[Rfam]
RNA sequence: AUUUUUCUAGUUGCAGCCUAGUCUUUUAGGCUGGUGGCUGGUGACUAAAUAGUCACCAGCCU
Number, nucleotide and partner (000 for none) at each position: 001a000002u000003u000004u000005u000006u000007c000008u000009a000010g000011u000012u000013g000014c033015a032016g031017c030018c029019u000020a000021g000022u000023c000024u000025u000026u000027u000028a000029g018030g017031c016032u015033g014034g000035u000036g061037g060038c059039u058040g057041g056042u055043g054044a053045c052046u000047a000048a000049a000050u000051a000052g045053u044054c043055a042056c041057c040058a039059g038060c037061c036062u000

A member of the RNA family "Pseudomonas sRNA P26" from Serratia sp. DD3, 62 nucleotides long. From the family's description: This small RNA (sRNA) was computationally identified in the genome of the opportunistic pathogen Pseudomonas aeruginosa and its expression verified by northern blot analysis. P26 is conserved across many Gammaproteobacteria species and appears to be consistently located between the DNA directed RNA polymerase (beta subunit) and 50S ribosomal protein L7/L12 genes. The family's consensus secondary structure was predicted with RNAalifold. The literature on the family includes a 2006 paper in Nucleic Acids Res by Livny et al., "Identification of 17 Pseudomonas aeruginosa sRNAs and prediction of sRNA-encoding genes in 10 diverse pathogens using the bioinformatic tool sRNAPredict2".